This 357-nucleotide part of an RNA from Picrophilus oshimae belongs to the Rfam family "Archaeal large subunit ribosomal RNA".
The family's consensus secondary structure is taken from published work.
Rfam links the family to the GO terms structural constituent of ribosome and ribosome.
NCBI's taxonomy places the organism under Archaea, Methanobacteriati, Thermoplasmata, Picrophilus, Picrophilus oshimae.
RNA sequence: GGGAAUAAUGGACGCGAGGGAACUCGGCCAAAUAGCUCCGUAUCUUAGGUAGAAGGAGUGCCUAUCCAGAGAGAGGAUAGGUCGCAGUGGCAAGGGGACCCCGACUGUUUACCAAAAACACAGAUCACUGCUAGUCCGUAAGGAUGUGUAUAGUGGUCGAAACCUGCCCAGUGCUGGUACCUGAAAGCUCCGCUCAAGGAGAAGAAGGGCCAGUAAACGGCGGGGGUAACUAUGACCCUCUCAAGGUAGCGUAAUACCUAGCCGCUUAAUUGGCGGCUUGCAUGAAGGUUCAACGAGAGUCCCACUGUCCCCGCGUUCAGCCCCGUGAAAUUAAUGUACUGGUGCACAAUCCAGUCU
Numbered sequence: 001g002g003g004a005a006u007a008a009u010g011g012a013c014g015c016g017a018g019g020g021a022a023c024u025c026g027g028c029c030a031a032a033u034a035g036c037u038c039c040g041u042a043u044c045u046u047a048g049g050u051a052g053a054a055g056g057a058g059u060g061c062c063u064a065u066c067c068a069g070a071g072a073g074a075g076g077a078u079a080g081g082u083c084g085c086a087g088u089g090g091c092a093a094g095g096g097g098a099c100c101c102c103g104a105c106u107g108u109u110u111a112c113c114a115a116a117a118a119c120a121c122a123g124a125u126c127a128c129u130g131c132u133a134g135u136c137c138g139u140a141a142g143g144a145u146g147u148g149u150a151u152a153g154u155g156g157u158c159g160a161a162a163c164c165u166g167c168c169c170a171g172u173g174c175u176g177g178u179a180c181c182u183g184a185a186a187g188c189u190c191c192g193c194u195c196a197a198g199g200a201g202a203a204g205a206a207g208g209g210c211c212a213g214u215a216a217a218c219g220g221c222g223g224g225g226g227u228a229a230c231u232a233u234g235a236c237c238c239u240c241u242c243a244a245g246g247u248a249g250c251g252u253a254a255u256a257c258c259u260a261g262c263c264g265c266u267u268a269a270u271u272g273g274c275g276g277c278u279u280g281c282a283u284g285a286a287g288g289u290u291c292a293a294c295g296a297g298a299g300u301c302c303c304a305c306u307g308u309c310c311c312c313g314c315g316u317u318c319a320g321c322c323c324c325g326u327g328a329a330a331u332u333a334a335u336g337u338a339c340u341g342g343u344g345c346a347c348a349a350u351c352c353a354g355u356c357u
Stems, first nucleotide, its partner, number of pairs: 001324003009319008018310003035059005044049001060082008083087001095303005101297001102295002106120003123158008131148001134145004161290004166221003171218002173214005180209003188201004222240006241245001261277006338355005